[Rfam]
RNA sequence: UCUUCAUUUCACGUGUUCUCUCACCGGUCAGAAAGGCGAGAGAAUGUGUGAAAUGAGUAGA
Numbered sequence: 001u002c003u004u005c006a007u008u009u010c011a012c013g014u015g016u017u018c019u020c021u022c023a024c025c026g027g028u029c030a031g032a033a034a035g036g037c038g039a040g041a042g043a044a045u046g047u048g049u050g051a052a053a054u055g056a057g058u059a060g061a
Stems, first nucleotide, its partner, number of pairs: 001059001003057005010050001012048006019041004
RNA: mir-8364 microRNA precursor family